This 88-nucleotide RNA from Paenibacillus sp. 598K belongs to the Rfam family "BsrC". Rfam describes the family as follows. The 301 nucleotide sequence from Kouji Nakamura has been trimmed to a highly conserved ~85 nucleotide long core to form this family. The source organism's lineage runs through Bacteria, Bacillati, Bacillota, Paenibacillaceae and Paenibacillus. On this family, see Saito et al., Gene 2008: "Novel small RNA-encoding genes in the intergenic regions of Bacillus subtilis".

[Rfam]
RNA sequence: AAAACCUAAAACAACGAAAGCCCUUCCUCUCUUCCAUCCUUGCGGCUCCGAAGACCGCGCCAGUGAGAAUCAGGUAUGCUAUAUAUCC
Numbered sequence: 001a002a003a004a005c006c007u008a009a010a011a012c013a014a015c016g017a018a019a020g021c022c023c024u025u026c027c028u029c030u031c032u033u034c035c036a037u038c039c040u041u042g043c044g045g046c047u048c049c050g051a052a053g054a055c056c057g058c059g060c061c062a063g064u065g066a067g068a069a070u071c072a073g074g075u076a077u078g079c080u081a082u083a084u085a086u087c088c
Base pairs, nucleotide, nucleotide: 035067039063040062041059042058043057044056045055047053